A member of the RNA family "Group II catalytic intron D1-D4-6" from bacterium I07, 238 nucleotides long. A reference for the family is Chu et al. (2001), "Control of branch-site choice by a group II intron", EMBO J. Group II introns are found in rRNA, tRNA and mRNA of organelles in fungi, plants and protists, and also in mRNA in bacteria. Its family is annotated with Group II intron splicing in the Gene Ontology. The base pairs follow the family's consensus structure. The match comes from Rfam's covariance-model search (125 bits).
RNA sequence: AGAUGACCGCCAUGAUAAAGCCUAGCCAGCAGUCAGGUACUGAGUCUUGCGUGGUGCUUGGUAACAAGUACUGCGAAGCGUAGACAGGGAGAUAACAGGCCGGAAUCGAAAGAUGAAGAGGAUAAUUAGCCCCGAAAUCGGUUAUAAGCGAAGCAGUCGACCUUAUGCCCCAACAGGGAAGACGGAAACGACCUAUUCGUGAUGGCGAGACUGGGAAGUUGCUUCCGGGGUUCGUACC
Numbered sequence: 001a002g003a004u005g006a007c008c009g010c011c012a013u014g015a016u017a018a019a020g021c022c023u024a025g026c027c028a029g030c031a032g033u034c035a036g037g038u039a040c041u042g043a044g045u046c047u048u049g050c051g052u053g054g055u056g057c058u059u060g061g062u063a064a065c066a067a068g069u070a071c072u073g074c075g076a077a078g079c080g081u082a083g084a085c086a087g088g089g090a091g092a093u094a095a096c097a098g099g100c101c102g103g104a105a106u107c108g109a110a111a112g113a114u115g116a117a118g119a120g121g122a123u124a125a126u127u128a129g130c131c132c133c134g135a136a137a138u139c140g141g142u143u144a145u146a147a148g149c150g151a152a153g154c155a156g157u158c159g160a161c162c163u164u165a166u167g168c169c170c171c172a173a174c175a176g177g178g179a180a181g182a183c184g185g186a187a188a189c190g191a192c193c194u195a196u197u198c199g200u201g202a203u204g205g206c207g208a209g210a211c212u213g214g215g216a217a218g219u220u221g222c223u224u225c226c227g228g229g230g231u232u233c234g235u236a237c238c
Stems, first nucleotide, its partner, number of pairs: 013035004020030002023208001025206002038090001040088002044085004048080002050075011126234001129231006150225006156183003161177003188219002192215004197210002